[Rfam]
RNA sequence: CGUACGAAAGGGCAAAUCCAUUGAAAGAUGGUGGCGCAAAGCUAUAGGGGCUAAGGUUUAUCAACUAUGCCAGCCAGAUACCGAA
Numbered sequence: 001c002g003u004a005c006g007a008a009a010g011g012g013c014a015a016a017u018c019c020a021u022u023g024a025a026a027g028a029u030g031g032u033g034g035c036g037c038a039a040a041g042c043u044a045u046a047g048g049g050g051c052u053a054a055g056g057u058u059u060a061u062c063a064a065c066u067a068u069g070c071c072a073g074c075c076a077g078a079u080a081c082c083g084a085a
Base pairs, nucleotide, nucleotide: 012037013036018031019030020029021028022027040079042077043076047075048074049071050070051069056065057064058063